[Rfam]
RNA: MIR6217 microRNA precursor family
RNA sequence: UGGCCAUAAAAUAACUUAUUCUGUAGCCACUUUGAGUUACGAUAAUUACUAUGUUAAUUUAUGAGAUUAUGGUAACUUCCUCAUAAGUGAUUUAGUAUAACAUUAUGGUAAGUAUCAUCUUGAAAUAUAGUAACCCAUAUAUCGUAAAUGUGUUUUGUCAUUAUCGUAAAUUAGUAUAAACAUUAUCGUAAAUCAUGGUGGCUAUAGAAUAAGUUAUUCUGUGGCCC
Numbered sequence: 001u002g003g004c005c006a007u008a009a010a011a012u013a014a015c016u017u018a019u020u021c022u023g024u025a026g027c028c029a030c031u032u033u034g035a036g037u038u039a040c041g042a043u044a045a046u047u048a049c050u051a052u053g054u055u056a057a058u059u060u061a062u063g064a065g066a067u068u069a070u071g072g073u074a075a076c077u078u079c080c081u082c083a084u085a086a087g088u089g090a091u092u093u094a095g096u097a098u099a100a101c102a103u104u105a106u107g108g109u110a111a112g113u114a115u116c117a118u119c120u121u122g123a124a125a126u127a128u129a130g131u132a133a134c135c136c137a138u139a140u141a142u143c144g145u146a147a148a149u150g151u152g153u154u155u156u157g158u159c160a161u162u163a164u165c166g167u168a169a170a171u172u173a174g175u176a177u178a179a180a181c182a183u184u185a186u187c188g189u190a191a192a193u194c195a196u197g198g199u200g201g202c203u204a205u206a207g208a209a210u211a212a213g214u215u216a217u218u219c220u221g222u223g224g225c226c227c
Stems, first nucleotide, its partner, number of pairs: 002226007010218022033195001037191010050178013065165003069161003074155001081146001087142003092137001093132002096129004103122001108116001